[Rfam]
Nucleotides: 087
Base pairs, nucleotide, nucleotide: 001085002084003083004082005081006080009077010076011075012074014072017069019067020066021065025060026059027058028057034052035051036050
Number, partner (000 for none) and nucleotide at each position: 001085u002084u003083g004082g005081a006080g007000g008000a009077u010076u011075u012074g013000a014072a015000g016000a017069c018000u019067u020066c021065a022000a023000c024000u025060u026059g027058c028057a029000u030000u031000g032000a033000c034052g035051a036050a037000a038000c039000a040000a041000u042000u043000u044000g045000a046000a047000g048000a049000c050036u051035u052034c053000a054000a055000c056000u057028u058027g059026c060025a061000u062000a063000u064000u065021u066020g067019g068000u069017g070000g071000a072014u073000c074012u075011a076010a077009a078000a079000a080006c081005u082004u083003u084002a085001a086000c087000u
This 87-nucleotide RNA from Solanum tuberosum belongs to the Rfam family "MIR8024 microRNA precursor family". The source organism's lineage runs through Eukaryota, Viridiplantae, Embryophyta, Mesangiospermae and Solanum. The match comes from Rfam's covariance-model search (70 bits).